RNA: S4-Bacteroidia ribosomal protein leader
RNA sequence: GAUUGUAAUUUCUUCUCUACAGUUCGCGGCUG
Numbered sequence: 001g002a003u004u005g006u007a008a009u010u011u012c013u014u015c016u017c018u019a020c021a022g023u024u025c026g027c028g029g030c031u032g
Stems, first nucleotide, its partner, number of pairs: 001025001002023005
Dot-bracket structure: ((((((............))))).).......